RNA sequence: CUGCGGUGCAUUGUAGUUGCAUUGCAUUAUCCUGAAACCGAGUGCAAUGUGCCUGCAGUGCAACGCAG
Numbered sequence: 001c002u003g004c005g006g007u008g009c010a011u012u013g014u015a016g017u018u019g020c021a022u023u024g025c026a027u028u029a030u031c032c033u034g035a036a037a038c039c040g041a042g043u044g045c046a047a048u049g050u051g052c053c054u055g056c057a058g059u060g061c062a063a064c065g066c067a068g
Stems, first nucleotide, its partner, number of pairs: 001068004006064001007062010019050001021048007
Rfam assigns this 68-nucleotide sequence from Menidia menidia to the family "mir-33 microRNA precursor family". Gene Ontology terms of the family: RISC complex and gene silencing by miRNA. On this family, see Li et al., BMC Genomics 2009: "Direct sequencing and expression analysis of a large number of miRNAs in Aedes aegypti and a multi-species survey of novel mosquito miRNAs". The match comes from Rfam's covariance-model search (71 bits).